[Rfam]
RNA sequence: AGUCGUAUUUAGAUUGUUAAACUCAACACUAAAAAAACACCGAGUGACGCUAUGUUUUUAAAGAGCGGGCCUCGCCCUUGUGGUUACUACUUGUAGUACGGAGGAUUAUCGAUAAUUACAUGCACUCAAAUCCUGUUUUCAGGAGUUUAAAUAAUCCCGGGUGAUGCGGUCCUU
Numbered sequence: 001a002g003u004c005g006u007a008u009u010u011a012g013a014u015u016g017u018u019a020a021a022c023u024c025a026a027c028a029c030u031a032a033a034a035a036a037a038c039a040c041c042g043a044g045u046g047a048c049g050c051u052a053u054g055u056u057u058u059u060a061a062a063g064a065g066c067g068g069g070c071c072u073c074g075c076c077c078u079u080g081u082g083g084u085u086a087c088u089a090c091u092u093g094u095a096g097u098a099c100g101g102a103g104g105a106u107u108a109u110c111g112a113u114a115a116u117u118a119c120a121u122g123c124a125c126u127c128a129a130a131u132c133c134u135g136u137u138u139u140c141a142g143g144a145g146u147u148u149a150a151a152u153a154a155u156c157c158c159g160g161g162u163g164a165u166g167c168g169g170u171c172c173u174u
Stems, first nucleotide, its partner, number of pairs: 049123002053120003058115003063110002070104004076083002087096003
RNA: Bacteroidales-1 6S-Bacteroidales RNA suggested
Organism: Carboxylicivirga sediminis